Notes: The record is a 116-nucleotide RNA sequence from Micromonospora sp. MH33, which matches "Actinobacteria sRNA Ms_IGR-7" in Rfam. Pairs were carried over by alignment from the consensus structure.
Nucleotides: 116
Stems, first nucleotide, its partner, number of pairs: 003071011017058001019056001021054002025050001027048002030045001032043002098114001100112002102109002
Number, partner (000 for none) and nucleotide at each position: 001000g002000c003071g004070a005069g006068g007067u008066g009065c010064c011063c012062u013061c014000u015000c016000a017058a018000a019056c020000c021054g022053g023000c024000g025050g026000a027048a028047u029000a030045g031000a032043a033042g034000c035000g036000u037000c038000g039000c040000a041000a042033c043032u044000c045030c046000u047028a048027u049000c050025c051000u052000u053022c054021c055000a056019g057000u058017u059000c060000a061013g062012a063011g064010g065009g066008c067007a068006u069005c070004u071003u072000c073000u074000a075000u076000c077000u078000u079000c080000g081000g082000g083000g084000c085000c086000c087000c088000g089000c090000c091000g092000a093000u094000c095000c096000g097000a098114c099000a100112g101111u102109c103108a104000u105000c106000g107000a108103u109102g110000g111101a112100u113000c114098g115000a116000g